[Rfam]
RNA: Small nucleolar RNA SNORD60
Organism: Acipenser ruthenus
Nucleotides: 084
Base pairs, nucleotide, nucleotide: 001083002082003081004080044056045055046054047053048052
Number, partner (000 for none) and nucleotide at each position: 001083a002082g003081c004080c005000u006000g007000u008000g009000a010000u011000g012000a013000a014000u015000u016000c017000a018000u019000u020000a021000u022000a023000u024000u025000u026000c027000u028000g029000a030000c031000a032000c033000c034000u035000a036000c037000u038000a039000u040000g041000a042000g043000u044056a045055u046054u047053g048052c049000u050000a051000a052048g053047c054046a055045a056044u057000a058000c059000u060000u061000g062000a063000u064000u065000a066000c067000a068000a069000u070000u071000g072000u073000g074000a075000u076000c077000u078000g079000a080004g081003g082002c083001u084000c